[Rfam]
RNA sequence: UAAGACCAUCUGGGAGAGACCGGUAAAAUCCGGCGCCGACGGAGCAACCGCCCCGGAAACUCUCAGGCAAAAGGACCAGAAUGGUUGU
Numbered sequence: 001u002a003a004g005a006c007c008a009u010c011u012g013g014g015a016g017a018g019a020c021c022g023g024u025a026a027a028a029u030c031c032g033g034c035g036c037c038g039a040c041g042g043a044g045c046a047a048c049c050g051c052c053c054c055g056g057a058a059a060c061u062c063u064c065a066g067g068c069a070a071a072a073g074g075a076c077c078a079g080a081a082u083g084g085u086u087g088u
Stems, first nucleotide, its partner, number of pairs: 006083001009080005020033004035068003038064002042062003048056002
RNA: Glycine riboswitch aptamer
Organism: Paramesorhizobium endophyticum